Insect-Specific Flavivirus 3' UTR repeats Ra and Rb elements: a 100-nucleotide RNA from Quang Binh virus. The base pairs follow the family's consensus structure, which was predicted with LocARNA. It is one of the family's seed sequences. Rfam's curators write: 3' UTRs in insect specific flavivirus families present three to four repeats of conserved element Ra and Rb. By type it is a cis-regulatory element.
RNA sequence: CGCAAGGAGGGGUGUGUGUUUCACGCCCCUGGGAGUUAACGAUUCUCCGGCCCCAGUUCCUAGGUCCAGGGAGGGCCCCGUGGCGCUGAAAGGGCGCUGA
Numbered sequence: 001c002g003c004a005a006g007g008a009g010g011g012g013u014g015u016g017u018g019u020u021u022c023a024c025g026c027c028c029c030u031g032g033g034a035g036u037u038a039a040c041g042a043u044u045c046u047c048c049g050g051c052c053c054c055a056g057u058u059c060c061u062a063g064g065u066c067c068a069g070g071g072a073g074g075g076c077c078c079c080g081u082g083g084c085g086c087u088g089a090a091a092g093g094g095c096g097c098u099g100a
Stems, first nucleotide, its partner, number of pairs: 002057002006053002008030005015023002031047006063077002065072002081099007